[Rfam]
RNA: Glycine riboswitch aptamer
Organism: Lachnoclostridium sp. An118
RNA sequence: CGAUCUCUUUCACGAGAGAGCUGACACCGAGCAGCCGCCGAAGAGGCAAGCCGGGGGACGAUGAAGCUGGUCCUCAGGUGAAACUUUCAGGCAAAAGGAUUGGAAGAGGGAC
Numbered sequence: 001c002g003a004u005c006u007c008u009u010u011c012a013c014g015a016g017a018g019a020g021c022u023g024a025c026a027c028c029g030a031g032c033a034g035c036c037g038c039c040g041a042a043g044a045g046g047c048a049a050g051c052c053g054g055g056g057g058a059c060g061a062u063g064a065a066g067c068u069g070g071u072c073c074u075c076a077g078g079u080g081a082a083a084c085u086u087u088c089a090g091g092c093a094a095a096a097g098g099a100u101u102g103g104a105a106g107a108g109g110g111a112c
Stems, first nucleotide, its partner, number of pairs: 006107007020035004037092003040088002044086003050079002